[Rfam]
RNA sequence: UAAACAUAUUAUUGUAUUCGACUGUAUUCACGAUAUGUAUUUGUGAAUGCAGUAAUAUAAAUAGCGCAAUUCAUGGUCUUUUCAACUAUUUUUAAACGGAAAGUGAAUCAAUUAACAUAAUAGACUCCU
Numbered sequence: 001u002a003a004a005c006a007u008a009u010u011a012u013u014g015u016a017u018u019c020g021a022c023u024g025u026a027u028u029c030a031c032g033a034u035a036u037g038u039a040u041u042u043g044u045g046a047a048u049g050c051a052g053u054a055a056u057a058u059a060a061a062u063a064g065c066g067c068a069a070u071u072c073a074u075g076g077u078c079u080u081u082u083c084a085a086c087u088a089u090u091u092u093u094a095a096a097c098g099g100a101a102a103g104u105g106a107a108u109c110a111a112u113u114a115a116c117a118u119a120a121u122a123g124a125c126u127c128c129u
Stems, first nucleotide, its partner, number of pairs: 004126001009123007017115002020113002023110002026108006034098001036096001037091001039089002043087001
Background: A member of the RNA family "MIR6152 microRNA precursor family" from Nicotiana sylvestris, 129 nucleotides long. A search with the family's covariance model found it, with a score of 58 bits. Lineage of the source: Eukaryota > Streptophyta > Mesangiospermae > Solanaceae > Nicotiana.